RNA sequence: UUUCUCAGCCUCCUCAUUGUGCAUGCUGUGUGUCUGCAGUCCUGUUCGCACAGCGCCUGCAAUGUGGAGGCUGAGGAG
Numbered sequence: 001u002u003u004c005u006c007a008g009c010c011u012c013c014u015c016a017u018u019g020u021g022c023a024u025g026c027u028g029u030g031u032g033u034c035u036g037c038a039g040u041c042c043u044g045u046u047c048g049c050a051c052a053g054c055g056c057c058u059g060c061a062a063u064g065u066g067g068a069g070g071c072u073g074a075g076g077a078g
Stems, first nucleotide, its partner, number of pairs: 012067002015064007024055001026053006